[Rfam]
Nucleotides: 074
Stems, first nucleotide, its partner, number of pairs: 002072003006068001010064003016059004021054010
Number, partner (000 for none) and nucleotide at each position: 001000c002072u003071g004070u005000a006068u007000g008000u009000a010064c011063c012062c013000u014000g015000u016059a017058g018057a019056u020000c021054c022053g023052a024051a025050u026049u027048u028047g029046u030045g031000u032000g033000a034000g035000g036000g037000a038000a039000u040000c041000a042000u043000g044000u045030c046029a047028c048027a049026a050025a051024u052023u053022c054021g055000u056019g057018u058017c059016u060000g061000g062012g063011g064010g065000g066000u067000g068006g069000g070004a071003u072002a073000u074000g
The family of this 74-nucleotide RNA from Hymenochirus boettgeri is "mir-10 microRNA precursor family". The base pairs follow the family's consensus structure, which was predicted with PFOLD. A reference for the family is Lee and Ambros (2001), "An extensive class of small RNAs in Caenorhabditis elegans", Science. Its family is annotated with miRNA-mediated post-transcriptional gene silencing and RISC complex in the Gene Ontology. A search with the family's covariance model found it, with a score of 52 bits.